[Rfam]
Source information:
Rfam assigns this 97-nucleotide sequence from Actinidia chinensis to the family "Small nucleolar RNA R64/Z200 family". A search with the family's covariance model found it, with a score of 94 bits. Rfam links the family to the GO terms RNA processing and nucleolus.

RNA sequence: CUUCUGCCAUGAUGAAUCAUGAAAAUAAUUCACAUGUCAGACUUUAGAGAUUUAUAAAAAUCUAUGAGAAGAGAUUUUCAAGUUUCCUGAGCAGAAG
Numbered sequence: 001c002u003u004c005u006g007c008c009a010u011g012a013u014g015a016a017u018c019a020u021g022a023a024a025a026u027a028a029u030u031c032a033c034a035u036g037u038c039a040g041a042c043u044u045u046a047g048a049g050a051u052u053u054a055u056a057a058a059a060a061u062c063u064a065u066g067a068g069a070a071g072a073g074a075u076u077u078u079c080a081a082g083u084u085u086c087c088u089g090a091g092c093a094g095a096a097g
Stems, first nucleotide, its partner, number of pairs: 001097007049062004